[Rfam]
RNA sequence: CCGGGGGCGUGAGCCCCCGGCUACACCAUGCCGCUCCUUCGGAGCU
Numbered sequence: 001c002c003g004g005g006g007g008c009g010u011g012a013g014c015c016c017c018c019g020g021c022u023a024c025a026c027c028a029u030g031c032c033g034c035u036c037c038u039u040c041g042g043a044g045c046u
Base pairs, nucleotide, nucleotide: 001020002019003018004017005016006015007014008013033045034044035043036042037041
Dot-bracket structure: ((((((((....))))))))............(((((...))))).
Description: The record is a 46-nucleotide RNA sequence from Lacipirellula parvula, which matches "Acido-Lenti-1 RNA" in Rfam. A search with the family's covariance model found it, with a score of 43 bits.